[Rfam]
RNA sequence: GGACAUAACUCUGGAAAGCUAAAAUAGAGCACCGACGGAGCAAAUCUCUCAGGUACCAAGACAGAGUAUAGGGC
Numbered sequence: 001g002g003a004c005a006u007a008a009c010u011c012u013g014g015a016a017a018g019c020u021a022a023a024a025u026a027g028a029g030c031a032c033c034g035a036c037g038g039a040g041c042a043a044a045u046c047u048c049u050c051a052g053g054u055a056c057c058a059a060g061a062c063a064g065a066g067u068a069u070a071g072g073g074c
Stems, first nucleotide, its partner, number of pairs: 008067006019029002031054003034050002038048003
The record is a 74-nucleotide sequence from Clostridium collagenovorans, which matches "Glycine riboswitch aptamer" in Rfam. Pairs were carried over by alignment from the consensus structure. The match comes from Rfam's covariance-model search (45 bits). Rfam links the family to the GO term glycine biosynthetic process. Taxonomically the source falls in Clostridium collagenovorans (Bacteria, Clostridia, Eubacteriales, Clostridium).